[Rfam]
The family of this 110-nucleotide sequence from Nicoliella spurrieriana is "S10-Clostridia ribosomal protein leader". The match comes from Rfam's covariance-model search (36 bits).

RNA sequence: UGAUAGCAUUGAUGUGAGAGAUUGCGGCACACCCGGUUGCAUUGCCAUGAGGGUUGAGUCGGGAACUUUCACGGAGUUAGUCUUAUUUUUAAAAUAGACGAAGGAGGGAA
Numbered sequence: 001u002g003a004u005a006g007c008a009u010u011g012a013u014g015u016g017a018g019a020g021a022u023u024g025c026g027g028c029a030c031a032c033c034c035g036g037u038u039g040c041a042u043u044g045c046c047a048u049g050a051g052g053g054u055u056g057a058g059u060c061g062g063g064a065a066c067u068u069u070c071a072c073g074g075a076g077u078u079a080g081u082c083u084u085a086u087u088u089u090u091a092a093a094a095u096a097g098a099c100g101a102a103g104g105a106g107g108g109a110a
Base pairs, nucleotide, nucleotide: 014072015071016070018069019068020067025061026060027059028058081109082108083107084106087105088104089103090102
Lineage of the source: Bacteria > Bacillota > Lactobacillales > Lactobacillaceae > Nicoliella.